About this RNA
Shown here is a 54-nucleotide RNA from Denticeps clupeoides, a member of the family "UnaL2 LINE 3' element". Rfam 15.1 lists 493,311 matches to the family in 99 species. On this family, see Baba et al., RNA 2004: "Solution structure of an RNA stem-loop derived from the 3' conserved region of eel LINE UnaL2".
[Rfam]
RNA sequence: UCGAAAGCACGUUGUAAGUCGCUCUGGAUAAGGGCGUCUGCCAAAUGCCUUAAA
Numbered sequence: 001u002c003g004a005a006a007g008c009a010c011g012u013u014g015u016a017a018g019u020c021g022c023u024c025u026g027g028a029u030a031a032g033g034g035c036g037u038c039u040g041c042c043a044a045a046u047g048c049c050u051u052a053a054a
Stems, first nucleotide, its partner, number of pairs: 013043001014041003020036006

Annotation: It scores 55 bits against the family's covariance model.